The family of this 98-nucleotide RNA from Prochlorococcus marinus is "Cyanobacterial functional RNA 13".
The base pairs follow the family's consensus structure, which was predicted with mfold.
The family's RNA type in Rfam is small RNA.
Taxonomically the source falls in Prochlorococcus marinus (Bacteria, Bacillati, Synechococcales, Prochlorococcus).
[Rfam]
RNA sequence: GAGGCCAAACCUCAAUGAGUACGCUCUACGUUUACUCCAAGACAUAGAUUGACUUUAUAUAGUACGAGUCAAUUUAAUAGCCCUUUCAGUAGUUGGAA
Numbered sequence: 001g002a003g004g005c006c007a008a009a010c011c012u013c014a015a016u017g018a019g020u021a022c023g024c025u026c027u028a029c030g031u032u033u034a035c036u037c038c039a040a041g042a043c044a045u046a047g048a049u050u051g052a053c054u055u056u057a058u059a060u061a062g063u064a065c066g067a068g069u070c071a072a073u074u075u076a077a078u079a080g081c082c083c084u085u086u087c088a089g090u091a092g093u094u095g096g097a098a
Base pairs, nucleotide, nucleotide: 001013002012003011004010017037018036019035020034021033023031024030045076046075047074048073049072050071051070052069054067055066081096082095